Description: The family of this 149-nucleotide sequence from Paspalum vaginatum is "Small nucleolar RNA snoR2/U65". NCBI's taxonomy places the organism under Eukaryota, Magnoliopsida, Petrosaviidae, Poales, Paspalum. The family's consensus secondary structure was predicted with WAR. By type it is an H/ACA-box small nucleolar RNA. For this family Rfam cites "Localization and processing from a polycistronic precursor of novel snoRNAs in maize" (Shaw et al., J Cell Sci, 1998).
RNA sequence: GGCCUCAUGCCACGUCUCUGGUAGCUACUGAGCAUUGAGCAUUGACCAGAGAUGAUAUGAUUAGUUCGACAAGAGUUCAAUGUUUCACGUGCUGAUAGGAACCUGGUGACUGACCCAUCUGUCCAGAGCCGGUUUCUGUGACUCCAUAU
Numbered sequence: 001g002g003c004c005u006c007a008u009g010c011c012a013c014g015u016c017u018c019u020g021g022u023a024g025c026u027a028c029u030g031a032g033c034a035u036u037g038a039g040c041a042u043u044g045a046c047c048a049g050a051g052a053u054g055a056u057a058u059g060a061u062u063a064g065u066u067c068g069a070c071a072a073g074a075g076u077u078c079a080a081u082g083u084u085u086c087a088c089g090u091g092c093u094g095a096u097a098g099g100a101a102c103c104u105g106g107u108g109a110c111u112g113a114c115c116c117a118u119c120u121g122u123c124c125a126g127a128g129c130c131g132g133u134u135u136c137u138g139u140g141a142c143u144c145c146a147u148a149u
Base pairs, nucleotide, nucleotide: 002066004064005063007061008060009058013054014053015052016051017050018049020047021046022045024040025039026038085141086140087139088138089137098130099129103126104125105124108123109122110121